This 231-nucleotide RNA from Medicago truncatula belongs to the Rfam family "MIR2630 microRNA precursor family". The match comes from Rfam's covariance-model search (151 bits).

[Rfam]
Nucleotides: 231
Base pairs, nucleotide, nucleotide: 006225007224008223009222010221011220012219013218016215018213019212020211023208024207025206026205027204028203029202031200033198034197035196037194038193040191041190042189045186046185047184048183049182051180052179054177056175057174059172060171061170062169066165067164069162071160073158074157078153079152080151081150082149083148084147089142090141092139093138108125109124110123111122112121
Number, partner (000 for none) and nucleotide at each position: 001000c002000c003000u004000u005000g006225c007224a008223a009222a010221u011220a012219u013218a014000c015000c016215a017000c018213u019212u020211u021000a022000u023208g024207c025206u026205u027204u028203u029202g030000u031200u032000g033198c034197u035196u036000g037194g038193u039000c040191u041190u042189u043000u044000a045186u046185u047184u048183u049182a050000g051180u052179c053000c054177c055000g056175a057174c058000a059172a060171a061170a062169u063000a064000u065000g066165u067164u068000a069162g070000c071160a072000c073158u074157g075000a076000a077000a078153u079152u080151g081150g082149u083148c084147c085000c086000u087000a088000c089142a090141a091000u092139a093138u094000u095000c096000a097000u098000u099000u100000u101000a102000g103000u104000c105000c106000u107000u108125a109124u110123u111122u112121u113000g114000u115000g116000g117000g118000a119000c120000u121112a122111a123110a124109a125108u126000c127000a128000a129000a130000u131000g132000u133000u134000c135000u136000a137000u138093a139092u140000u141090u142089u143000a144000c145000a146000a147084g148083g149082a150081c151080c152079a153078a154000u155000u156000c157074c158073a159000a160071u161000a162069c163000g164067a165066a166000u167000a168000a169062a170061u171060u172059u173000g174057g175056u176000a177054g178000a179052g180051a181000c182049u183048a184047a185046a186045a187000c188000c189042a190041a191040a192000c193038a194037u195000u196035a197034g198033g199000g200031a201000c202029c203028a204027a205026a206025a207024g208023u209000a210000a211020a212019a213018a214000u215016u216000u217000g218013u219012a220011u221010g222009u223008u224007u225006g226000c227000a228000a229000g230000g231000a
Pairs were carried over by alignment from the consensus structure, which was predicted with RNAalifold. NCBI's taxonomy places the organism under Eukaryota, Embryophyta, Mesangiospermae, Trifolieae, Medicago.